[Rfam]
RNA: CyaR/Rye RNA
RNA sequence: UUGCUGAAUCAAAACGCAAAACAAUGACCCAGCUCCACCAGGAACCACCUCUUUCGCCAGCUCAUCCUCCCUUGAGCUGGCUUUUUA
Numbered sequence: 001u002u003g004c005u006g007a008a009u010c011a012a013a014a015c016g017c018a019a020a021a022c023a024a025u026g027a028c029c030c031a032g033c034u035c036c037a038c039c040a041g042g043a044a045c046c047a048c049c050u051c052u053u054u055c056g057c058c059a060g061c062u063c064a065u066c067c068u069c070c071c072u073u074g075a076g077c078u079g080g081c082u083u084u085u086u087a
Stems, first nucleotide, its partner, number of pairs: 040053004056081009